mir-9193 microRNA precursor family: a 127-nucleotide RNA sequence from Myotis myotis. The source organism's lineage runs through Eukaryota, Metazoa, Eumetazoa, Chiroptera and Myotis. The match comes from Rfam's covariance-model search (63 bits). Pairs were carried over by alignment from the consensus structure, which was predicted with RNAalifold.
RNA sequence: CGUGCACUGGUGGGGUCCCUCAGCCUGGCCUGUAGCCUCUCACAAUCAGGAAUUCCUUGGGGGAUGUCGGACUGCCAGUUUCAGCAUGAUCCCCACAGGCCAGGCUGAGGGACUCCACCAGUGCACA
Numbered sequence: 001c002g003u004g005c006a007c008u009g010g011u012g013g014g015g016u017c018c019c020u021c022a023g024c025c026u027g028g029c030c031u032g033u034a035g036c037c038u039c040u041c042a043c044a045a046u047c048a049g050g051a052a053u054u055c056c057u058u059g060g061g062g063g064a065u066g067u068c069g070g071a072c073u074g075c076c077a078g079u080u081u082c083a084g085c086a087u088g089a090u091c092c093c094c095a096c097a098g099g100c101c102a103g104g105c106u107g108a109g110g111g112a113c114u115c116c117a118c119c120a121g122u123g124c125a126c127a
Stems, first nucleotide, its partner, number of pairs: 003125002006122001008120003012116014027101007